[Rfam]
RNA: Glycine riboswitch aptamer
RNA sequence: AUGCCGAACUCUGGAGAGCGGCACCCGCCAUUCGUGGCGAGCGUGCCCACCGAAGGGGCGCACGAGGACGGGGUCCGGCAGGAUCCGCCUUGUAAUCUCUCAGGUAUCGAGGACAGAGGGGUCAUC
Numbered sequence: 001a002u003g004c005c006g007a008a009c010u011c012u013g014g015a016g017a018g019c020g021g022c023a024c025c026c027g028c029c030a031u032u033c034g035u036g037g038c039g040a041g042c043g044u045g046c047c048c049a050c051c052g053a054a055g056g057g058g059c060g061c062a063c064g065a066g067g068a069c070g071g072g073g074u075c076c077g078g079c080a081g082g083a084u085c086c087g088c089c090u091u092g093u094a095a096u097c098u099c100u101c102a103g104g105u106a107u108c109g110a111g112g113a114c115a116g117a118g119g120g121g122u123c124a125u126c
Stems, first nucleotide, its partner, number of pairs: 009118005020047004049105003052101002056099003062093006